Description
Archaeal large subunit ribosomal RNA: a 581-nucleotide part of an RNA from uncultured marine group II euryarchaeote 37F11.

RNA sequence: AUUCUACCCGCAAGCGAAGACCCCAUAGAGCUUUACUGCAGCCUGUCGUUGCAUAGUCGCUUUCCAUGUACUGUGUAGGUGGGAGACGUUGAUCCCUGGGACGCCAGUCCCGGGAGUAGUUGAAAGGAGAGACACCACCCUUGGAGAGUAACUAUGCUAACUGUUUAUCAGGACACCGAUUGGUGGGCAGUUUGGGUGGGGCGCCACGCGCUCGAAAACCUAACAAGCGUGCCCAAAGGUCAGCUUAAGUGGUUCAGCACUCCACUGGAAACUGUAAGGGGAAAAGCUGGCUUGACGUGGAUCCGCACAAUAAGGAUCGACGAUGCGAAAGCAGGGCCUAACGAACCUACCAACCUUAUUUCUGAGGGUGGUAGAUAACAGAAAAGUUACCUUGGGGAUAAUUGAGUUGUCACCAGCAAGAGCUCACAUCGACCUGGUGGCUUGCUACUUCGAUGUCGUCUCUUCCUAUCCUGGGCCUGCAGCAGGGCCCAAGGGUGGGGUUGUUCGCCCAUUAAAAGGGAUCGUGAGAUGGGUUUAGACCGUCGUGAGACAGGUUUGUUGCUUGGUGGUAGAAUCGCGUA
Number, nucleotide and partner (000 for none) at each position: 001a575002u574003u573004c572005u571006a570007c569008c568009c000010g567011c566012a000013a000014g562015c561016g000017a000018a000019g000020a000021c000022c396023c395024c394025a393026u000027a392028g391029a388030g387031c386032u385033u384034u000035a191036c190037u189038g188039c000040a000041g000042c183043c182044u000045g180046u179047c178048g177049u000050u000051g157052c156053a155054u154055a153056g152057u151058c000059g149060c148061u147062u146063u145064c144065c143066a142067u000068g140069u000070a000071c000072u000073g000074u000075g000076u000077a000078g139079g138080u137081g136082g135083g000084a000085g121086a120087c119088g000089u000090u000091g000092a000093u000094c000095c000096c000097u000098g111099g110100g109101a108102c107103g000104c000105c000106a000107g102108u101109c100110c099111c098112g000113g000114g000115a000116g000117u000118a000119g087120u086121u085122g000123a000124a000125a000126g000127g000128a000129g000130a000131g000132a000133c000134a000135c082136c081137a080138c079139c078140c068141u000142u066143g065144g064145a063146g062147a061148g060149u059150a000151a057152c056153u055154a054155u053156g052157c051158u000159a000160a000161c171162u170163g169164u000165u000166u000167a000168u000169c163170a162171g161172g000173a000174c000175a000176c000177c048178g047179a046180u045181u000182g043183g042184u000185g000186g000187g000188c038189a037190g036191u035192u000193u000194g207195g205196g204197u203198g000199g000200g000201g000202c000203g197204c196205c195206a000207c194208g230209c229210g228211c227212u226213c000214g000215a000216a000217a000218a000219c000220c000221u000222a000223a000224c000225a000226a212227g211228c210229g209230u208231g000232c000233c336234c335235a000236a000237a000238g000239g291240u290241c289242a288243g287244c286245u271246u270247a000248a266249g265250u264251g263252g262253u000254u000255c000256a000257g000258c000259a000260c000261u000262c252263c251264a250265c249266u248267g000268g000269a000270a246271a245272c281273u280274g000275u000276a000277a000278g000279g000280g273281g272282a000283a000284a000285a000286g244287c243288u242289g241290g240291c239292u000293u000294g000295a000296c322297g321298u320299g000300g318301a317302u316303c315304c314305g000306c000307a000308c000309a000310a000311u000312a000313a000314g304315g303316a302317u301318c300319g000320a298321c297322g296323a000324u333325g000326c331327g000328a000329a000330a000331g326332c000333a324334g000335g234336g233337c000338c000339u000340a000341a000342c000343g000344a000345a000346c000347c374348u373349a372350c371351c370352a000353a369354c368355c367356u366357u365358a000359u000360u000361u000362c000363u000364g000365a357366g356367g355368g354369u353370g351371g350372u349373a348374g347375a000376u000377a000378a000379c000380a000381g000382a000383a000384a033385a032386g031387u030388u029389a000390c000391c028392u027393u025394g024395g023396g022397g000398a000399u000400a000401a000402u000403u000404g000405a446406g445407u444408u000409g443410u440411c439412a438413c437414c436415a435416g434417c000418a000419a000420g430421a429422g000423c000424u000425c000426a000427c000428a000429u421430c420431g000432a000433c000434c416435u415436g414437g413438u412439g411440g410441c000442u000443u409444g407445c406446u405447a000448c000449u000450u000451c000452g000453a000454u000455g000456u000457c532458g530459u529460c528461u527462c524463u521464u520465c519466c518467u517468a000469u000470c495471c494472u000473g000474g489475g488476c487477c486478u485479g000480c000481a000482g000483c000484a000485g478486g477487g476488c475489c474490c000491a000492a000493g000494g471495g470496u000497g000498g510499g509500g508501u507502u000503g000504u000505u000506c000507g501508c500509c499510c498511a000512u000513u000514a000515a000516a000517a467518g466519g465520g464521a463522u000523c000524g462525u000526g000527a461528g460529a459530u458531g000532g457533g000534u000535u000536u000537a000538g556539a555540c554541c553542g551543u550544c549545g000546u000547g000548a000549g544550a543551c542552a000553g541554g540555u539556u538557u000558g000559u000560u000561g015562c014563u000564u000565g000566g011567u010568g008569g007570u006571a005572g004573a003574a002575u001576c000577g000578c000579g000580u000581a000

The organism belongs to Candidatus Poseidoniales, within Archaea.
Rfam's curators put it in the seed alignment.